[Rfam]
RNA sequence: AGCCGCACUGCGGCAAAUAGGGUCCAGUCACAAAAAGCCCCGAUUUAUCGGGGUUUUUUGUUAUUUGACAACAGAAUCACUGGGCUAUUAAGCCCUUUUUUU
Numbered sequence: 001a002g003c004c005g006c007a008c009u010g011c012g013g014c015a016a017a018u019a020g021g022g023u024c025c026a027g028u029c030a031c032a033a034a035a036a037g038c039c040c041c042g043a044u045u046u047a048u049c050g051g052g053g054u055u056u057u058u059u060g061u062u063a064u065u066u067g068a069c070a071a072c073a074g075a076a077u078c079a080c081u082g083g084g085c086u087a088u089u090a091a092g093c094c095c096u097u098u099u100u101u102u
Stems, first nucleotide, its partner, number of pairs: 034057009082095004